A member of the RNA family "Molybdenum/Tungsten riboswitch aptamer (Moco RNA motif)" from Pelotomaculum propionicicum, 120 nucleotides long. The base pairs follow the family's consensus structure, which is taken from published work. The source organism's lineage runs through Bacteria, Clostridia, Eubacteriales, Desulfotomaculaceae and Pelotomaculum. Gene Ontology terms of the family: molybdenum ion binding, tungstate binding and regulation of gene expression.
RNA sequence: GAUUCAUAUGCUCUUCGAGCCGCACAACCUAAAGUCAUAUGGCUAUGGUUGACGGCCGGCAGGGUGCGCUGGGAAACCUACGUGCCUUCCAUUGCGAAAAGGAGAGUUGGAUUUGGCUUC
Numbered sequence: 001g002a003u004u005c006a007u008a009u010g011c012u013c014u015u016c017g018a019g020c021c022g023c024a025c026a027a028c029c030u031a032a033a034g035u036c037a038u039a040u041g042g043c044u045a046u047g048g049u050u051g052a053c054g055g056c057c058g059g060c061a062g063g064g065u066g067c068g069c070u071g072g073g074a075a076a077c078c079u080a081c082g083u084g085c086c087u088u089c090c091a092u093u094g095c096g097a098a099a100a101g102g103a104g105a106g107u108u109g110g111a112u113u114u115g116g117c118u119u120c
Base pairs, nucleotide, nucleotide: 011106012105013104014103015102016101019056020055021054022053025051026050027049028048029047033044034043035042036041062087063086064085065084066083067082068081071078072077088097089096